[Rfam]
RNA sequence: GCCAUAGAUACGACUUUUAGAGUACUUCUAAAAAGUAUCUAUGCGCUGAUUUUGGACUUGACAAAAAGCGCCUAGUAUCUGUUUACUAAGUGCUUUUUCUUUGUU
Numbered sequence: 001g002c003c004a005u006a007g008a009u010a011c012g013a014c015u016u017u018u019a020g021a022g023u024a025c026u027u028c029u030a031a032a033a034a035g036u037a038u039c040u041a042u043g044c045g046c047u048g049a050u051u052u053u054g055g056a057c058u059u060g061a062c063a064a065a066a067a068g069c070g071c072c073u074a075g076u077a078u079c080u081g082u083u084u085a086c087u088a089a090g091u092g093c094u095u096u097u098u099c100u101u102u103g104u105u
Base pairs, nucleotide, nucleotide: 001044003043004042005041006040007039008038009037010036011035015033016032017031018030019029020028067094068093069092070091071090073088074087075086076085077084